[Rfam]
RNA: epsC RNA
RNA sequence: UGGUGAUGUCUCCUUACUGUUAUCAACGGAGGCACUCGAUCAUGCUGUGGGUUGAAAUAAACCUUAGACGCGCGUCGUCGCUGGUAUGGGGUGAGGAUGGGUUAAAUGCCCA
Dot-bracket structure: [[[[..(((((((..]]]]........)))))))((((.(((((((..(((((......)))))..((((.....))))...)))))))..))))..(((((.....)))))